[Rfam]
RNA sequence: GCCGAGGUGGCGGAACUGGCAGACGCGACUGACUCAAAAUCAGUUGAGGGUUGACCCCCUCGUGCGGGUUCGACUCCCGCCCUCGGCA
Numbered sequence: 001g002c003c004g005a006g007g008u009g010g011c012g013g014a015a016c017u018g019g020c021a022g023a024c025g026c027g028a029c030u031g032a033c034u035c036a037a038a039a040u041c042a043g044u045u046g047a048g049g050g051u052u053g054a055c056c057c058c059c060u061c062g063u064g065c066g067g068g069u070u071c072g073a074c075u076c077c078c079g080c081c082c083u084c085g086g087c088a
Stems, first nucleotide, its partner, number of pairs: 001087007010026003028044005064080005